RNA sequence: AGGCGGGGACGACCCCGCUGGAGGUGUUUUUCAGGCGGGGACGACCCCG
Numbered sequence: 001a002g003g004c005g006g007g008g009a010c011g012a013c014c015c016c017g018c019u020g021g022a023g024g025u026g027u028u029u030u031u032c033a034g035g036c037g038g039g040g041a042c043g044a045c046c047c048c049g
Stems, first nucleotide, its partner, number of pairs: 002019007036049005
The family of this 49-nucleotide RNA from Rhodospirillum rubrum is "Guanidine-II riboswitch aptamer (mini-ykkC)". Rfam 15.1 lists 1,589 matches to the family in 1,229 species. The family's consensus secondary structure is taken from published work. Rfam describes the family as follows. Simpler in structure and has fewer highly conserved nucleotide positions than the ykkC-yxkD leader. Despite this each of its two stem-loop structures directly bind free guanidine. Therefore, mini-ykkC RNA motif represents a distinct class of guanidine-sensing RNAs. The source organism's lineage runs through Bacteria, Pseudomonadati, Pseudomonadota, Rhodospirillum and Rhodospirillum rubrum.